[Rfam]
A member of the RNA family "S16-Flavobacteria ribosomal protein leader" from Ulvibacter antarcticus, 34 nucleotides long. The family's RNA type in Rfam is cis-regulatory leader. The match comes from Rfam's covariance-model search (41 bits). Lineage of the source: Bacteria > Flavobacteriia > Flavobacteriales > Flavobacteriaceae > Ulvibacter.

RNA sequence: AUUAUAAUCGAGGUCGAGCACCUCAAAAAUUAAU
Numbered sequence: 001a002u003u004a005u006a007a008u009c010g011a012g013g014u015c016g017a018g019c020a021c022c023u024c025a026a027a028a029a030u031u032a033a034u
Stems, first nucleotide, its partner, number of pairs: 001034004005029001010024005